RNA: U5 spliceosomal RNA
Organism: Pelodiscus sinensis
Nucleotides: 116
Base pairs, nucleotide, nucleotide: 003078004077005076006075009068010067011066012065013064014063015062016061017060018059019058028054029053030052031051032050033049034048035047096116098115099114100113101112102111103110
Number, partner (000 for none) and nucleotide at each position: 001000a002000a003078a004077u005076u006075c007000u008000g009068g010067u011066u012065u013064c014063u015062c016061u017060u018059c019058a020000u021000a022000u023000u024000g025000u026000a027000u028054a029053a030052a031051u032050c033049u034048u035047u036000u037000g038000c039000c040000u041000u042000u043000u044000a045000c046000u047035a048034a049033a050032g051031a052030u053029u054028u055000c056000c057000a058019u059018g060017a061016a062015g063014a064013g065012g066011a067010a068009u069000g070000u071000u072000u073000a074000u075006g076005a077004g078003u079000u080000u081000g082000u083000a084000u085000u086000c087000a088000a089000u090000u091000u092000u093000u094000u095000g096116a097000g098115g099114c100113u101112u102111c103110a104000c105000u106000c107000u108000g109000g110103u111102g112101a113100a114099g115098c116096u